[Rfam]
RNA sequence: CGGUUACAAAGGCAAAAUCAGUGAAAGCUGAUGACGCAAAACUAUAGGACCUAAAUUAUAAAUCAUUAAAUAUUUGUGGGGAUCCAUAA
Numbered sequence: 001c002g003g004u005u006a007c008a009a010a011g012g013c014a015a016a017a018u019c020a021g022u023g024a025a026a027g028c029u030g031a032u033g034a035c036g037c038a039a040a041a042c043u044a045u046a047g048g049a050c051c052u053a054a055a056u057u058a059u060a061a062a063u064c065a066u067u068a069a070a071u072a073u074u075u076g077u078g079g080g081g082a083u084c085c086a087u088a089a
Stems, first nucleotide, its partner, number of pairs: 012037002017032006040083001042081002045079001047077001048074002056068001058066002
RNA: c-di-GMP-I riboswitch aptamer
Organism: Fusibacter sp. 3D3